Shown here is a 142-nucleotide RNA sequence from Paenibacillus curdlanolyticus, a member of the family "c-di-AMP riboswitch aptamer (ydaO/yuaA leader)".
Rfam's curators write: This family represents a conserved RNA structure found upstream of the ydaO and yuaA genes in Bacillus subtilis and related genes in other bacteria.
Rfam 15.1 lists 7,607 matches to the family in 2,262 species.
The organism belongs to Paenibacillus curdlanolyticus, within Bacteria.
RNA sequence: AAUAAAGCUACGCUUAAUUAUCGACGCCAUGUCGAUAAGCGGGGGAACCAGUCAAUUGGGGCGAAUCGGCGGCAUUGCCGCGAAGGGUACCAUCUUAACCCGAGCCCGUCAGCUAACCUCGUCAGCAGUGGAUGGGUCUAUG
Numbered sequence: 001a002a003u004a005a006a007g008c009u010a011c012g013c014u015u016a017a018u019u020a021u022c023g024a025c026g027c028c029a030u031g032u033c034g035a036u037a038a039g040c041g042g043g044g045g046a047a048c049c050a051g052u053c054a055a056u057u058g059g060g061g062c063g064a065a066u067c068g069g070c071g072g073c074a075u076u077g078c079c080g081c082g083a084a085g086g087g088u089a090c091c092a093u094c095u096u097a098a099c100c101c102g103a104g105c106c107c108g109u110c111a112g113c114u115a116a117c118c119u120c121g122u123c124a125g126c127a128g129u130g131g132a133u134g135g136g137u138c139u140a141u142g
Stems, first nucleotide, its partner, number of pairs: 012126003018038009039122006049058002059107003067082002085101004